[Rfam]
Source information: This 67-nucleotide sequence from Triticum aestivum belongs to the Rfam family "Small nucleolar RNA Z105". NCBI's taxonomy places the organism under Eukaryota, Magnoliopsida, Petrosaviidae, Poaceae, Triticum. For this family Rfam cites "The high diversity of snoRNAs in plants: identification and comparative study of 120 snoRNA genes from Oryza sativa" (Chen et al., Nucleic Acids Res, 2003).

RNA sequence: UUGGCAUGAUGAGGAAGACAAUUGUUGUCUGAUCUAUUUGAUGAUCAAAUCCUCCUACUCAUUCUGA
Number, nucleotide and partner (000 for none) at each position: 001u000002u000003g000004g000005c000006a062007u061008g060009a059010u000011g000012a000013g000014g000015a000016a000017g000018a000019c000020a000021a000022u000023u000024g000025u044026u043027g000028u000029c040030u000031g000032a000033u000034c000035u000036a000037u000038u000039u000040g029041a000042u000043g026044a025045u000046c000047a000048a000049a000050u000051c000052c000053u000054c000055c000056u000057a000058c000059u009060c008061a007062u006063u000064c000065u000066g000067a000